Bacillaceae-1 RNA: a 68-nucleotide RNA sequence from Peribacillus loiseleuriae. NCBI's taxonomy places the organism under Bacteria, Bacillati, Bacillota, Bacillaceae, Peribacillus. The match comes from Rfam's covariance-model search (39 bits).
RNA sequence: CAUGAUUGACCUUCUGUUAAGAUCGCGCACGUCAUACGAGCAACACAGAAGUCAGCACAUUCUGUGCA
Numbered sequence: 001c002a003u004g005a006u007u008g009a010c011c012u013u014c015u016g017u018u019a020a021g022a023u024c025g026c027g028c029a030c031g032u033c034a035u036a037c038g039a040g041c042a043a044c045a046c047a048g049a050a051g052u053c054a055g056c057a058c059a060u061u062c063u064g065u066g067c068a
Stems, first nucleotide, its partner, number of pairs: 011051007026040001028038001055067004
Dot-bracket structure: ..........(((((((........(.(.........).)....)))))))...((((.....)))).